[Rfam]
RNA sequence: CCUCCGCUCUCCCCGCACAGGAGAGCGGAUCGAGGCACACGGCGCUCUCUGCCCUGACUGCGCCUGCGCCUCCGAUCGGCCGGCUGGACCGGUCGAUGCAACUCCGGGCUGCGGUGCCGGGCGGGUUGAGGGUCCCGCCCUGGCGC
Numbered sequence: 001c002c003u004c005c006g007c008u009c010u011c012c013c014c015g016c017a018c019a020g021g022a023g024a025g026c027g028g029a030u031c032g033a034g035g036c037a038c039a040c041g042g043c044g045c046u047c048u049c050u051g052c053c054c055u056g057a058c059u060g061c062g063c064c065u066g067c068g069c070c071u072c073c074g075a076u077c078g079g080c081c082g083g084c085u086g087g088a089c090c091g092g093u094c095g096a097u098g099c100a101a102c103u104c105c106g107g108g109c110u111g112c113g114g115u116g117c118c119g120g121g122c123g124g125g126u127u128g129a130g131g132g133u134c135c136c137g138c139c140c141u142g143g144c145g146c
Stems, first nucleotide, its partner, number of pairs: 003029004008024005032072005038066002041064002044061002046057002076096007101115003105111002119140007
Background: Shown here is a 146-nucleotide sequence from Streptomyces palmae, a member of the family "Streptomyces sRNA scr5239". The source organism's lineage runs through Bacteria, Bacillati, Actinomycetes, Kitasatosporales and Streptomyces. It scores 124 bits against the family's covariance model. Gene Ontology terms of the family: mRNA binding and negative regulation of translation.